[Rfam]
Nucleotides: 097
Stems, first nucleotide, its partner, number of pairs: 003090003009084002015079006022071002025068005031062003
Number, partner (000 for none) and nucleotide at each position: 001000a002000u003090c004089a005088c006000c007000u008000a009084g010083g011000g012000a013000u014000c015079u016078u017077g018076u019075u020074a021000a022071a023070a024000u025068g026067c027066a028065g029064a030000u031062u032061c033060u034000g035000a036000a037000u038000u039000a040000g041000u042000a043000c044000g045000c046000c047000u048000g049000g050000g051000a052000c053000a054000g055000g056000u057000c058000c059000g060033a061032g062031a063000u064029u065028u066027u067026g068025c069000a070023u071022u072000c073000u074020u075019a076018a077017c078016a079015a080000a081000u082000a083010c084009c085000u086000a087000g088005g089004u090003g091000a092000c093000c094000c095000u096000u097000a